[Rfam]
RNA sequence: UUUAAUCUUCAGGGCGGGGUGAAAGUCCCCACCGGCGGUAAAGCCCGCGAACCGUAAGGUUGAUUCGGUGAAAUUCCGAAGCCGACAGUCACAGUCUGGAUGGAAGAAGAUAUAU
Numbered sequence: 001u002u003u004a005a006u007c008u009u010c011a012g013g014g015c016g017g018g019g020u021g022a023a024a025g026u027c028c029c030c031a032c033c034g035g036c037g038g039u040a041a042a043g044c045c046c047g048c049g050a051a052c053c054g055u056a057a058g059g060u061u062g063a064u065u066c067g068g069u070g071a072a073a074u075u076c077c078g079a080a081g082c083c084g085a086c087a088g089u090c091a092c093a094g095u096c097u098g099g100a101u102g103g104a105a106g107a108a109g110a111u112a113u114a115u
Base pairs, nucleotide, nucleotide: 005111006110007109008108009107010106017029018028019027031095032094033084034083035048036047037046038045043082044081051060052059053058064080065079066078067077068076086098087097088096
A member of the RNA family "FMN riboswitch aptamer (RFN element)" from Gottschalkia purinilytica, 115 nucleotides long. The RFN element is a highly conserved domain that is found frequently in the 5'-untranslated regions of prokaryotic mRNAs that encode for flavin mononucleotide (FMN) biosynthesis and transport proteins. This element is a metabolite-dependent riboswitch that directly binds FMN in the absence of proteins. In Bacillus subtilis, the riboswitch most likely controls gene expression by causing premature transcription termination within the 5' untranslated region of the ribDEAHT operon and precluding access to the ribosome-binding site of ypaA mRNA.The FMN riboswitch structure, reported in present an FMN-bound six-stem junction, adopts a butterfly-like scaffold, stapled together by opposingly directed but nearly identically folded peripheral domains. NCBI's taxonomy places the organism under Bacteria, Bacillati, Tissierellia, Gottschalkiaceae, Gottschalkia. Its family is annotated with FMN binding in the Gene Ontology. The base pairs follow the family's consensus structure, which is taken from published work.